This 108-nucleotide sequence from Gossypium gossypioides belongs to the Rfam family "mir-172 microRNA precursor family". For this family Rfam cites "Computational Identification of Plant MicroRNAs and Their Targets, Including a Stress-Induced miRNA" (Jones-Rhoades and Bartel, Mol Cell, 2004). The match comes from Rfam's covariance-model search (82 bits). Rfam's curators write: mir-172 has been experimentally verified in Arabidopsis thaliana. This family is thought to target mRNAs coding for APETALA2-like transcription factors. NCBI's taxonomy places the organism under Eukaryota, Euphyllophyta, eudicotyledons, Malvaceae, Gossypium. Rfam links the family to the GO terms RISC complex and miRNA-mediated post-transcriptional gene silencing.
RNA sequence: UUUUUUGCUGAUGCAGCAUCUUCAAGAUUCACAUGCAAAGUAUAGUACGGCCAGGCAUAGCUUUUGUUUGAAGCAUGAGAAUCUUGAUGAUGCUGCAUCGGCCAUUAA
Numbered sequence: 001u002u003u004u005u006u007g008c009u010g011a012u013g014c015a016g017c018a019u020c021u022u023c024a025a026g027a028u029u030c031a032c033a034u035g036c037a038a039a040g041u042a043u044a045g046u047a048c049g050g051c052c053a054g055g056c057a058u059a060g061c062u063u064u065u066g067u068u069u070g071a072a073g074c075a076u077g078a079g080a081a082u083c084u085u086g087a088u089g090a091u092g093c094u095g096c097a098u099c100g101g102c103c104a105u106u107a108a
Stems, first nucleotide, its partner, number of pairs: 010099011022087009032077002
Dot-bracket structure: .........(((((((((((.(((((((((.((..........................................)).))))))))).))))))))))).........